[Rfam]
RNA: tRNA
RNA sequence: GGGUUCAUAGCUCAGAUGGUUAGAGCGCUACAUUGACAUUGUAGAGGUCGGCAGUUCGAAUCUGCCUGAACCCA
Number, nucleotide and partner (000 for none) at each position: 001g073002g072003g071004u070005u069006c068007a067008u000009a000010g026011c025012u024013c023014a000015g000016a000017u000018g000019g000020u000021u000022a000023g013024a012025g011026c010027g000028c044029u043030a042031c041032a040033u000034u000035g000036a000037c000038a000039u000040u032041g031042u030043a029044g028045a000046g000047g000048u000049c000050g066051g065052c064053a063054g062055u000056u000057c000058g000059a000060a000061u000062c054063u053064g052065c051066c050067u007068g006069a005070a004071c003072c002073c001074a000